A member of the RNA family "Small nucleolar RNA SNORD45" from Pelecanus crispus, 88 nucleotides long. By type it is a C/D-box small nucleolar RNA. The literature on the family includes a 2002 paper in Mol Cell Biol by Galardi et al., "Purified box C/D snoRNPs are able to reproduce site-specific 2'-O-methylation of target RNA in vitro". The source organism's lineage runs through Eukaryota, Euteleostomi, Dipnotetrapodomorpha, Tetrapoda and Pelecanus. The match comes from Rfam's covariance-model search (42 bits).
[Rfam]
RNA sequence: GGUCUGUGAUGGGUGUUGGCGUGUAUUAUCGGAGCAUAAAUCCGAAGAUGGUCAGUUCAGUUGAGCUCUAGAAUGACUCCGAGACCUG
Numbered sequence: 001g002g003u004c005u006g007u008g009a010u011g012g013g014u015g016u017u018g019g020c021g022u023g024u025a026u027u028a029u030c031g032g033a034g035c036a037u038a039a040a041u042c043c044g045a046a047g048a049u050g051g052u053c054a055g056u057u058c059a060g061u062u063g064a065g066c067u068c069u070a071g072a073a074u075g076a077c078u079c080c081g082a083g084a085c086c087u088g
Stems, first nucleotide, its partner, number of pairs: 001086004